This 78-nucleotide RNA from Conger conger belongs to the Rfam family "mir-19 microRNA precursor family". Rfam links the family to the GO terms RISC complex and miRNA-mediated post-transcriptional gene silencing. The base pairs follow the family's consensus structure, which was predicted with RNAalifold. It scores 76 bits against the family's covariance model. Rfam 15.1 lists 2,337 matches to the family in 651 species.

[Rfam]
Nucleotides: 078
Base pairs, nucleotide, nucleotide: 003076004075006073008071009070010069011068012067013066014065015064016063017062018061020058021057022055023054024053025052026051027050028049031048032047033046
Number, partner (000 for none) and nucleotide at each position: 001000g002000u003076c004075u005000c006073u007000g008071g009070u010069c011068a012067g013066u014065u015064u016063u017062g018061c019000u020058g021057g022055u023054u024053u025052g026051c027050a028049u029000c030000c031048a032047g033046c034000u035000u036000c037000a038000a039000g040000u041000c042000u043000u044000g045000u046033g047032c048031u049028g050027u051026g052025c053024a054023a055022a056000u057021c058020c059000a060000u061018g062017c063016a064015a065014a066013a067012c068011u069010g070009a071008u072000g073006a074000u075004a076003g077000c078000c
On this family, see Lagos-Quintana et al., Science 2001: "Identification of novel genes coding for small expressed RNAs".